[Rfam]
RNA sequence: UCCAUCUUGUUGGGAGAAAUCGGGACGGCCGAAAGGUCCGAGCCCGGUGCCGAAGGAGCAACCGCCCCGGAAACUCUCAGGCGAAAGGACCAGCAAGA
Number, nucleotide and partner (000 for none) at each position: 001u000002c000003c000004a000005u000006c097007u096008u095009g094010u093011u092012g091013g090014g000015a000016g000017a000018a000019a000020u047021c046022g045023g044024g000025a000026c000027g000028g000029c000030c000031g000032a000033a000034a000035g000036g000037u000038c000039c000040g000041a000042g000043c000044c023045c022046g021047g020048u000049g082050c081051c080052g078053a077054a000055g000056g076057a075058g074059c000060a000061a000062c070063c069064g000065c000066c000067c000068c000069g063070g062071a000072a000073a000074c058075u057076c056077u053078c052079a000080g051081g050082c049083g000084a000085a000086a000087g000088g000089a000090c013091c012092a011093g010094c009095a008096a007097g006098a000
Shown here is a 98-nucleotide RNA sequence from Rhizobium sp. RU20A, a member of the family "Glycine riboswitch aptamer". Pairs were carried over by alignment from the consensus structure. Rfam links the family to the GO term glycine biosynthetic process. NCBI's taxonomy places the organism under Bacteria, Pseudomonadati, Alphaproteobacteria, Hyphomicrobiales, Rhizobium.